This 78-nucleotide RNA sequence from Leiothrix lutea belongs to the Rfam family "mir-458 microRNA precursor family". NCBI's taxonomy places the organism under Eukaryota, Deuterostomia, Chordata, Theropoda, Leiothrix. Its family is annotated with miRNA-mediated post-transcriptional gene silencing and RISC complex in the Gene Ontology.
RNA sequence: GUGCCGAUGGCAGCGCCAUUUCCAGAGCUAUCAAACACUCUCAUGUCAUAGCUCUUGGAAUGGUUCUGCCAUAAGCAC
Numbered sequence: 001g002u003g004c005c006g007a008u009g010g011c012a013g014c015g016c017c018a019u020u021u022c023c024a025g026a027g028c029u030a031u032c033a034a035a036c037a038c039u040c041u042c043a044u045g046u047c048a049u050a051g052c053u054c055u056u057g058g059a060a061u062g063g064u065u066c067u068g069c070c071a072u073a074a075g076c077a078c
Stems, first nucleotide, its partner, number of pairs: 002077003007072003011068003015064007024055008